[Rfam]
RNA sequence: ACCUAACAUAGCUCUUUUAGAAUUUUUCUGGCAGGUUUUCUGAGUUUGAUGAGAAAACUCAA
Numbered sequence: 001a002c003c004u005a006a007c008a009u010a011g012c013u014c015u016u017u018u019a020g021a022a023u024u025u026u027u028c029u030g031g032c033a034g035g036u037u038u039u040c041u042g043a044g045u046u047u048g049a050u051g052a053g054a055a056a057a058c059u060c061a062a
Stems, first nucleotide, its partner, number of pairs: 034059008043050001
A member of the RNA family "U7 small nuclear RNA" from Mus spicilegus, 62 nucleotides long. It scores 40 bits against the family's covariance model. Pairs were carried over by alignment from the consensus structure, which was predicted with PFOLD. A reference for the family is Spycher et al. (1994), "3' end processing of mouse histone pre-mRNA: evidence for additional base-pairing between U7 snRNA and pre-mRNA", Nucleic Acids Res. The organism belongs to Mus, within Eukaryota. Animal histone pre-mRNAs are spliced by a different mechanism than nuclear pre-mRNAs and self-splicing introns. This processing involves the U7 snRNP, which contains only one RNA species: U7. The 5' end of U7 RNA is thought to base-pair to a conserved spacer element downstream of the cleavage site in histone pre-mRNA. This family contains a number of annotated U7 pseudogenes.